Source information: Rfam assigns this 111-nucleotide sequence from Homo sapiens to the family "Y RNA". A search with the family's covariance model found it, with a score of 48 bits.
RNA sequence: GGCUUGUCCCAAGGUGGGGAGUUACCUCAAUUGAUUUUUCACAGUCAGUUAUGGAUCAAAUUCCUUGUUCGACUUUCUCCCCUUCUCACUACUGCACUUGACUAGUCUUAA
Numbered sequence: 001g002g003c004u005u006g007u008c009c010c011a012a013g014g015u016g017g018g019g020a021g022u023u024a025c026c027u028c029a030a031u032u033g034a035u036u037u038u039u040c041a042c043a044g045u046c047a048g049u050u051a052u053g054g055a056u057c058a059a060a061u062u063c064c065u066u067g068u069u070c071g072a073c074u075u076u077c078u079c080c081c082c083u084u085c086u087c088a089c090u091a092c093u094g095c096a097c098u099u100g101a102c103u104a105g106u107c108u109u110a111a
Stems, first nucleotide, its partner, number of pairs: 001107004006102003011098001014095002016090002019087003043074003048070001
Y RNAs are components of the Ro ribonucleoprotein particle (Ro RNP), in association with Ro60 and La proteins. Lineage of the source: Eukaryota > Opisthokonta > Eumetazoa > Dipnotetrapodomorpha > Homo.